[Rfam]
RNA sequence: ACACAAUCACCGCUGGUAGGAGCGGGGGAACCACUUUCGGCGCGCUACGGCGCGUCUUGGGGUGAAGUUCGACCGGCUUCAAGCCGGCGGACCGGGCAACCUCAGCCCGAACCCGACAGCUCACCUCGUAGGCGCUGGAGGUCCCCUGU
Numbered sequence: 001a002c003a004c005a006a007u008c009a010c011c012g013c014u015g016g017u018a019g020g021a022g023c024g025g026g027g028g029a030a031c032c033a034c035u036u037u038c039g040g041c042g043c044g045c046u047a048c049g050g051c052g053c054g055u056c057u058u059g060g061g062g063u064g065a066a067g068u069u070c071g072a073c074c075g076g077c078u079u080c081a082a083g084c085c086g087g088c089g090g091a092c093c094g095g096g097c098a099a100c101c102u103c104a105g106c107c108c109g110a111a112c113c114c115g116a117c118a119g120c121u122c123a124c125c126u127c128g129u130a131g132g133c134g135c136u137g138g139a140g141g142u143c144c145c146c147u148g149u
Base pairs, nucleotide, nucleotide: 022129023128024127025126026125027124032059033058060114061113062112068091069090070089071088094108095107096106097105
A member of the RNA family "c-di-AMP riboswitch aptamer (ydaO/yuaA leader)" from Nostocoides jenkinsii, 149 nucleotides long.
The base pairs follow the family's consensus structure.
A search with the family's covariance model found it, with a score of 60 bits.